This 83-nucleotide RNA from Lupinus albus belongs to the Rfam family "Small nucleolar RNA Z122". Gene Ontology terms of the family: nucleolus and RNA processing. The family has 23 seed sequences and 822 matches in Rfam 15.1. A search with the family's covariance model found it, with a score of 60 bits.
RNA sequence: UUUGGGAAACGAUGCUAUAAAUUCAAACAGAGGCAGUAGCUCUGCUGAAUUAAAUUGUAUUUGCACGUCAGUCUGAUCCCAAG
Numbered sequence: 001u002u003u004g005g006g007a008a009a010c011g012a013u014g015c016u017a018u019a020a021a022u023u024c025a026a027a028c029a030g031a032g033g034c035a036g037u038a039g040c041u042c043u044g045c046u047g048a049a050u051u052a053a054a055u056u057g058u059a060u061u062u063g064c065a066c067g068u069c070a071g072u073c074u075g076a077u078c079c080c081a082a083g
Base pairs, nucleotide, nucleotide: 001083002082003081004080005079006078007077